[Rfam]
RNA sequence: UAUUGAAAAAGGCAAACUAUUUGAAAAAGUAGGACGCAAAGCCAUGGAUCUAAGGCGCAAGCUAUGAUAGCCAGGUUACCGUU
Dot-bracket structure: ...........((...((((((....))))))...))..((((.((((((....((....))...)))..)))))))......
The record is an 83-nucleotide sequence from Desulfonispora thiosulfatigenes, which matches "c-di-GMP-I riboswitch aptamer" in Rfam.
It scores 85 bits against the family's covariance model.